[Rfam]
RNA sequence: ACCCUUGUUUUGUUCACGUCUCCGGCUUAUCUAGAGGGUGCUUCGCAAGAAGAUAUGGCGAUAAAUGGUCGGUGUAAUAAACCUAUUGGACCCGGGGGCGGUACCCGGCGCCUCCACCAAAAACCGGCGGCCUUCUGGCCGGCUUUUGAUGGGGGCGAAAUAGGAUCGACAAGGGCGUAAAGAUCGUACUUUUGCUCGGCAUGAUACCGCCGUUAUCGGGUCACAAGUGUAGUUGCAAAUGACAACAACGCUAAGGAAUACGCUCUCGCUGCCUAAUGGCGGUGCGGGAAUUCCGCUCUAAGUCCUUACGGUUAGCCCCGUAAGGCGGGGUUCGGAGGUACCUGGCAACAGAAACCUCCACC
Dot-bracket structure: ........................................((((....))))....(((((.....(..((((........(((.(((...(((((.......)))))(((((((...................................)))))))............)))))).......))))..)..)))))((((.[[[..[[)))).....]].]]]........................................................................................................[[[[..((((((]]]]..........))))))...